[Rfam]
RNA sequence: AUCCAAGUGCUCGGGCUUUACGCUUACCAGUGAGGAUUCGUCCGAGGUAGCGUUUUUGCUAGUUGAAAACUACAACUAUGACCGCUCCAGUUGGUCUUCGGAUCGACUGGGAAUUUUUGUAACAAACUGUA
Numbered sequence: 001a002u003c004c005a006a007g008u009g010c011u012c013g014g015g016c017u018u019u020a021c022g023c024u025u026a027c028c029a030g031u032g033a034g035g036a037u038u039c040g041u042c043c044g045a046g047g048u049a050g051c052g053u054u055u056u057u058g059c060u061a062g063u064u065g066a067a068a069a070c071u072a073c074a075a076c077u078a079u080g081a082c083c084g085c086u087c088c089a090g091u092u093g094g095u096c097u098u099c100g101g102a103u104c105g106a107c108u109g110g111g112a113a114u115u116u117u118u119g120u121a122a123c124a125a126a127c128u129g130u131a
Base pairs, nucleotide, nucleotide: 020053021052022051023050024049026048027047028046034043035042036041086111087110088109089108090107091106092105093104094103095102096101
A member of the RNA family "U4 spliceosomal RNA" from Pyrenophora tritici-repentis, 131 nucleotides long.